RNA sequence: AGUUGAUGGGAAGAUAAUCUCUGGCAGAAAAUCGUUUUUAGUGUUGACCAAAAUUACAGACUACAAUUAUCUGAUCAACU
Numbered sequence: 001a002g003u004u005g006a007u008g009g010g011a012a013g014a015u016a017a018u019c020u021c022u023g024g025c026a027g028a029a030a031a032u033c034g035u036u037u038u039u040a041g042u043g044u045u046g047a048c049c050a051a052a053a054u055u056a057c058a059g060a061c062u063a064c065a066a067u068u069a070u071c072u073g074a075u076c077a078a079c080u
Base pairs, nucleotide, nucleotide: 001080002079003078004077005076006075